The record is a 276-nucleotide RNA sequence from Diceros bicornis, which matches "Small Cajal body specific RNA 6" in Rfam. On this family, see Darzacq et al., EMBO J 2002: "Cajal body-specific small nuclear RNAs: a novel class of 2'-O-methylation and pseudouridylation guide RNAs". The match comes from Rfam's covariance-model search (142 bits). U88 is small Cajal body specific RNA (scaRNA). scaRNAs are a novel class of small nuclear RNAs which localise to the Cajal bodies. U88 is found associated with both fibrillarin and Gar1p and co-localises with coilin in Cajal bodies. It is annotated as a small Cajal body RNA. The organism belongs to Diceros bicornis, within Eukaryota.

RNA sequence: GGUCGAUGAUGAUUGGUAAAAGGUCUGAUUGCACUUCAUGUCACAGUCCCUUCCUUGCCCUCAACUCCCAGCAGCCCAUUUUUUGCCUCCUGUCACAUUUAAGUCGUGUGUAUGGGAUAAUGGAGCAGCUGACAAUUUGGGAUUCUGUCAGUGUGUGUUUCUGAGAGAGAACAGGUCACGGCUGACUAGUAUCCAACAGAACCAGUUCUGCAGGAGAUUGAUGAGCGGCAGCCGUGGGUGUGACGGUGCAUGAUCUCAAGUUUUCAAUCUGAGACC
Numbered sequence: 001g002g003u004c005g006a007u008g009a010u011g012a013u014u015g016g017u018a019a020a021a022g023g024u025c026u027g028a029u030u031g032c033a034c035u036u037c038a039u040g041u042c043a044c045a046g047u048c049c050c051u052u053c054c055u056u057g058c059c060c061u062c063a064a065c066u067c068c069c070a071g072c073a074g075c076c077c078a079u080u081u082u083u084u085g086c087c088u089c090c091u092g093u094c095a096c097a098u099u100u101a102a103g104u105c106g107u108g109u110g111u112a113u114g115g116g117a118u119a120a121u122g123g124a125g126c127a128g129c130u131g132a133c134a135a136u137u138u139g140g141g142a143u144u145c146u147g148u149c150a151g152u153g154u155g156u157g158u159u160u161c162u163g164a165g166a167g168a169g170a171a172c173a174g175g176u177c178a179c180g181g182c183u184g185a186c187u188a189g190u191a192u193c194c195a196a197c198a199g200a201a202c203c204a205g206u207u208c209u210g211c212a213g214g215a216g217a218u219u220g221a222u223g224a225g226c227g228g229c230a231g232c233c234g235u236g237g238g239u240g241u242g243a244c245g246g247u248g249c250a251u252g253a254u255c256u257c258a259a260g261u262u263u264u265c266a267a268u269c270u271g272a273g274a275c276c
Stems, first nucleotide, its partner, number of pairs: 001276004038256001040254003047230001049228002052225001065216004069131004074126002089116005095111004139194001141193003145189002154180004159175002162170001